[Rfam]
RNA sequence: UGGUGUCCCUCACCCGCCCCUGACGAUCCCGGGUGGGGAGGGAACAGUCAGAGGGAUC
Dot-bracket structure: .....((((((.((((((......[[[[[[.)))))))))))).........]]]]]]
Antizyme RNA frameshifting stimulation element: a 58-nucleotide RNA from Molossus molossus. By type it is a frameshift element. Its family is annotated with translational frameshifting in the Gene Ontology. The base pairs follow the family's consensus structure, which is taken from published work. The literature on the family includes a 2004 paper in J Mol Biol by Ivanov et al., "Identification of a new antizyme mRNA +1 frameshifting stimulatory pseudoknot in a subset of diverse invertebrates and its apparent absence in intermediate species". This family represents a structural element which is found in antizyme mRNA and is known to promote frameshifting. Antizyme genes have have two partially overlapping open reading frames, the second, which encodes the functional protein requires +1 translational frameshifting. This frameshift is stimulated by a pseudoknot present 3' of the frameshift site in the antizyme mRNA. The frameshifting efficiency is dependent on the level of polyamines in the cell, when the polyamine concentration is high frameshifting is more likely to occur which leads to an increase in the quantity of functional antizyme produced. The functional antizyme acts to reduce ornithine decarboxylase (ODC) activity which leads to a drop in polyamines present in the cell.